This 168-nucleotide sequence from Pseudorhodoferax sp. Leaf274 belongs to the Rfam family "Manganese Mn2+ riboswitch aptamer (yybP-ykoY)".
Its family is annotated with manganese ion binding in the Gene Ontology.
[Rfam]
RNA sequence: UUGGGGAGUAGCCGGCUUCCGCCCCGUUCGGAAGCGCCUGCGUCAACACACUCGGCAUCUCGCAUGCCGUGGCGCUGGCAACCGUUGCACGGUUGGCGAGACCAUGGGCAUGGCCCCGCGACGCAGGUCGGGCAGCGGGGCCGUGCCCUUGUGCUCUUGCCCGGCCGC
Numbered sequence: 001u002u003g004g005g006g007a008g009u010a011g012c013c014g015g016c017u018u019c020c021g022c023c024c025c026g027u028u029c030g031g032a033a034g035c036g037c038c039u040g041c042g043u044c045a046a047c048a049c050a051c052u053c054g055g056c057a058u059c060u061c062g063c064a065u066g067c068c069g070u071g072g073c074g075c076u077g078g079c080a081a082c083c084g085u086u087g088c089a090c091g092g093u094u095g096g097c098g099a100g101a102c103c104a105u106g107g108g109c110a111u112g113g114c115c116c117c118g119c120g121a122c123g124c125a126g127g128u129c130g131g132g133c134a135g136c137g138g139g140g141c142c143g144u145g146c147c148c149u150u151g152u153g154c155u156c157u158u159g160c161c162c163g164g165c166c167g168c
Stems, first nucleotide, its partner, number of pairs: 015035005036079003040075006053069005086167001